[Rfam]
Nucleotides: 154
Stems, first nucleotide, its partner, number of pairs: 008046002012038001014036001017034005047068008116150015
Number, partner (000 for none) and nucleotide at each position: 001000u002000c003000a004000u005000c006000a007000u008046c009045a010000c011000c012038a013000u014036c015000a016000c017034c018033c019032u020031g021030a022000u023000u024000a025000a026000u027000c028000u029000u030021u031020c032019a033018g034017g035000c036014g037000u038012u039000u040000g041000g042000u043000g044000u045009u046008g047068c048067u049066u050065g051064g052063a053062a054061g055000a056000u057000u058000u059000u060000u061054c062053u063052u064051c065050c066049g067048a068047g069000u070000a071000g072000u073000g074000c075000u076000u077000u078000a079000a080000a081000g082000u083000a084000a085000g086000u087000c088000g089000u090000u091000a092000u093000a094000a095000a096000c097000g098000c099000a100000a101000a102000g103000a104000u105000a106000a107000a108000a109000a110000a111000g112000a113000c114000a115000c116150a117149a118148a119147a120146u121145c122144u123143c124142u125141c126140g127139g128138a129137a130136g131000a132000a133000u134000a135000c136130c137129u138128u139127c140126c141125g142124a143123g144122a145121g146120a147119u148118u149117u150116u151000u152000u153000u154000u
Rfam assigns this 154-nucleotide RNA from Bisgaardia hudsonensis to the family "Histidine operon leader". Rfam links the family to the GO term histidine biosynthetic process. At least 6 amino acid operons are known to be regulated by attenuation. A reference for the family is Kolter and Yanofsky (1982), "Attenuation in amino acid biosynthetic operons", Annu Rev Genet. Rfam classes the family as a cis-regulatory leader. The source organism's lineage runs through Bacteria, Gammaproteobacteria, Pasteurellales, Pasteurellaceae and Bisgaardia.